[Rfam]
Rfam assigns this 224-nucleotide part of an RNA from Neurospora crassa to the family "Eukaryotic large subunit ribosomal RNA". It is one of the family's seed sequences. Its family is annotated with structural constituent of ribosome and ribosome in the Gene Ontology. The base pairs follow the family's consensus structure, which is taken from published work.
RNA sequence: UAUUUGUAAUUAGAUUUAUACUAUUCUAAUUAUCCGGUAUUUUUACUAAUAUAUUUAGGACGGUUUAAAUUAGUAUCGGUUUUGGUAGGGGGAUAAAGGUCCGGGGAAUAUAGCUCCUCCGAGAAUAUUAUAGCCCCGGGCGUAAUACCUUCACUAGGAUUGAGGUUUAUAUAUUUGUAAGGAUACUAAUAUAAUAGUUAUUAACGAUCUAUUUUAAAAUAUGG
Numbered sequence: 001u002a003u004u005u006g007u008a009a010u011u012a013g014a015u016u017u018a019u020a021c022u023a024u025u026c027u028a029a030u031u032a033u034c035c036g037g038u039a040u041u042u043u044u045a046c047u048a049a050u051a052u053a054u055u056u057a058g059g060a061c062g063g064u065u066u067a068a069a070u071u072a073g074u075a076u077c078g079g080u081u082u083u084g085g086u087a088g089g090g091g092g093a094u095a096a097a098g099g100u101c102c103g104g105g106g107a108a109u110a111u112a113g114c115u116c117c118u119c120c121g122a123g124a125a126u127a128u129u130a131u132a133g134c135c136c137c138g139g140g141c142g143u144a145a146u147a148c149c150u151u152c153a154c155u156a157g158g159a160u161u162g163a164g165g166u167u168u169a170u171a172u173a174u175u176u177g178u179a180a181g182g183a184u185a186c187u188a189a190u191a192u193a194a195u196a197g198u199u200a201u202u203a204a205c206g207a208u209c210u211a212u213u214u215u216a217a218a219a220u221a222u223g224g
Stems, first nucleotide, its partner, number of pairs: 001206001003204002006201007017067002020064003024060001071188007209224004